Shown here is a 108-nucleotide RNA from Bacillus sp. V3-13, a member of the family "SAM riboswitch aptamer (S box leader)". NCBI's taxonomy places the organism under Bacteria, Bacillati, Caryophanales, Bacillaceae, Bacillus. Rfam's curators write: The SAM riboswitch is found upstream of a number of genes which code for proteins involved in methionine or cysteine biosynthesis in Gram-positive bacteria. The base pairs follow the family's consensus structure, which is taken from published work.
[Rfam]
RNA sequence: UUUUUGUUCUGAGUGGCGGAGGGACUGGCCCUGUGAAGCCCGGCAACCAUUCCAAUUUGGAAUAGGUGCUAAAUCCAGCAAAACAUUUUUUGUUUUGAAAGAUGAGAG
Dot-bracket structure: ((((((((....(.(((...(((.[[[[)))......))))((((.((((((.......)))).))))))...(]]]]((((((.......))))))..)))))))))